[Rfam]
RNA sequence: GGGGUCGAAUGGGGUACUGGUGUCCUCCGUAGUCUUCAAAACUAUCUGUGACCAGCGUGCCUGGUCAGCUGGGUUCGAUUCCCAGACGGUCCC
Numbered sequence: 001g002g003g004g005u006c007g008a009a010u011g012g013g014g015u016a017c018u019g020g021u022g023u024c025c026u027c028c029g030u031a032g033u034c035u036u037c038a039a040a041a042c043u044a045u046c047u048g049u050g051a052c053c054a055g056c057g058u059g060c061c062u063g064g065u066c067a068g069c070u071g072g073g074u075u076c077g078a079u080u081c082c083c084a085g086a087c088g089g090u091c092c093c
Stems, first nucleotide, its partner, number of pairs: 001093007012027003016023002029045005049067005070084004
Source information
The family of this 93-nucleotide RNA from Cytobacillus solani is "Selenocysteine transfer RNA". It scores 56 bits against the family's covariance model. The organism belongs to Cytobacillus, within Bacteria.